[Rfam]
RNA: ALIL pseudoknot
Organism: Paracoccus halophilus
RNA sequence: CGCGUAUUUCGCGCAGGCGGAACUCGACCGCCCGUUCAGGAAAUAAUCGCGUUCAUAGACGCGCAUCGCGACGAUUUUGGUGUCGGGUCGAUCUGCAGGAUUUUGCAGGUCGCACCA
Numbered sequence: 001c002g003c004g005u006a007u008u009u010c011g012c013g014c015a016g017g018c019g020g021a022a023c024u025c026g027a028c029c030g031c032c033c034g035u036u037c038a039g040g041a042a043a044u045a046a047u048c049g050c051g052u053u054c055a056u057a058g059a060c061g062c063g064c065a066u067c068g069c070g071a072c073g074a075u076u077u078u079g080g081u082g083u084c085g086g087g088u089c090g091a092u093c094u095g096c097a098g099g100a101u102u103u104u105g106c107a108g109g110u111c112g113c114a115c116c117a
Stems, first nucleotide, its partner, number of pairs: 016032005078117005089112002092109007